[Rfam]
RNA: raiA RNA
RNA sequence: UUUGCUUAGGUCUGUGGUUGAAAGUCGAUGCCAGUCGCAGGCGAAACGACCCACGUAAGGAGCCCAAAGCGGCUUUGAGCAUGGUGCGGCUUAGAGGUAAGCCCUGCCGGUCCCAGUAACAGGCGGUUAUUAGGGUUAAAGUUGACCGAGAGGAACUGUAGUGAGGGGUUAACUCCUAUUAGCGAAAUUCCCAGCAGGCGGGUGUGGGGUCAAAGACCAGGUCGGCUAAGCAGU
Numbered sequence: 001u002u003u004g005c006u007u008a009g010g011u012c013u014g015u016g017g018u019u020g021a022a023a024g025u026c027g028a029u030g031c032c033a034g035u036c037g038c039a040g041g042c043g044a045a046a047c048g049a050c051c052c053a054c055g056u057a058a059g060g061a062g063c064c065c066a067a068a069g070c071g072g073c074u075u076u077g078a079g080c081a082u083g084g085u086g087c088g089g090c091u092u093a094g095a096g097g098u099a100a101g102c103c104c105u106g107c108c109g110g111u112c113c114c115a116g117u118a119a120c121a122g123g124c125g126g127u128u129a130u131u132a133g134g135g136u137u138a139a140a141g142u143u144g145a146c147c148g149a150g151a152g153g154a155a156c157u158g159u160a161g162u163g164a165g166g167g168g169u170u171a172a173c174u175c176c177u178a179u180u181a182g183c184g185a186a187a188u189u190c191c192c193a194g195c196a197g198g199c200g201g202g203u204g205u206g207g208g209g210u211c212a213a214a215g216a217c218c219a220g221g222u223c224g225g226c227u228a229a230g231c232a233g234u
Stems, first nucleotide, its partner, number of pairs: 002233008012225003015219005028205003031041001033091007050084002058076003062073003082212001103198005108148005152191004161183002167176002